The record is a 173-nucleotide RNA sequence from Clostridium argentinense, which matches "Group II catalytic intron D1-D4-3" in Rfam. The base pairs follow the family's consensus structure. The source organism's lineage runs through Bacteria, Bacillati, Eubacteriales, Clostridiaceae and Clostridium argentinense. It scores 142 bits against the family's covariance model.

Nucleotides: 173
Stems, first nucleotide, its partner, number of pairs: 001016006028173001030171002035166002041159005046150005062145006073137003078133005084127001085113004091106004
Number, partner (000 for none) and nucleotide at each position: 001016u002015c003014c004013a005012u006011c007000g008000u009000g010000a011006g012005g013004u014003g015002g016001a017000a018000u019000c020000u021000g022000a023000a024000g025000g026000a027000a028173g029000u030171c031170g032000g033000c034000g035166g036165c037000a038000a039000a040000a041159c042158u043157c044156u045155g046150g047149u048148u049147u050146g051000a052000c053000g054000a055000a056000c057000a058000g059000a060000a061000a062145c063144u064143a065142c066141a067140u068000a069000u070000a071000a072000g073137g074136c075135a076000u077000g078133u079132g080131c081130u082129u083000g084127u085113g086112g087111g088110u089000g090000g091106g092105u093104u094103u095000g096000c097000a098000a099000g100000u101000c102000a103094a104093a105092a106091c107000a108000a109000a110088g111087c112086c113085c114000u115000a116000a117000a118000c119000u120000a121000u122000c123000u124000g125000a126000a127084a128000g129082a130081g131080g132079c133078g134000a135075u136074g137073u138000a139000a140067a141066u142065g143064u144063a145062g146050c147049a148048g149047a150046u151000g152000u153000g154000a155045u156044g157043g158042a159041g160000g161000g162000a163000a164000a165036g166035u167000a168000a169000g170031c171030g172000u173028u